[Rfam]
RNA: Ribosomal protein L10 leader
Organism: Andreesenia angusta
RNA sequence: GUCAAAAGAGAAUACAUUCCGUAGACAGCAGGGACUAAGCGUUUAAACAUCCUGCCGAGGGUUUAAAAGAGGGAAACUUCAAGCCUUUGCGUGUCUGUACGGAUAUGCAAAGGCUUUUGAUUUUGAAAC
Numbered sequence: 001g002u003c004a005a006a007a008g009a010g011a012a013u014a015c016a017u018u019c020c021g022u023a024g025a026c027a028g029c030a031g032g033g034a035c036u037a038a039g040c041g042u043u044u045a046a047a048c049a050u051c052c053u054g055c056c057g058a059g060g061g062u063u064u065a066a067a068a069g070a071g072g073g074a075a076a077c078u079u080c081a082a083g084c085c086u087u088u089g090c091g092u093g094u095c096u097g098u099a100c101g102g103a104u105a106u107g108c109a110a111a112g113g114c115u116u117u118u119g120a121u122u123u124u125g126a127a128a129c
Stems, first nucleotide, its partner, number of pairs: 028055006034042002083114014